[Rfam]
RNA sequence: GGAUUAUGGAGACCGGAAACCAUCUUAAAAACGGGGCGUACUCCGAAAAGCCUUAUGAGUAGGAAAAUA
Numbered sequence: 001g002g003a004u005u006a007u008g009g010a011g012a013c014c015g016g017a018a019a020c021c022a023u024c025u026u027a028a029a030a031a032c033g034g035g036g037c038g039u040a041c042u043c044c045g046a047a048a049a050g051c052c053u054u055a056u057g058a059g060u061a062g063g064a065a066a067a068u069a
Base pairs, nucleotide, nucleotide: 006023007022008021009020035052036051037050042063043062
Rfam assigns this 69-nucleotide sequence from Candidatus Methylospira mobilis to the family "DUF805 RNA". The base pairs follow the family's consensus structure, which is taken from published work. It is annotated as a cis-regulatory element. Rfam 15.1 lists 281 matches to the family in 219 species. The organism belongs to Candidatus Methylospira, within Bacteria.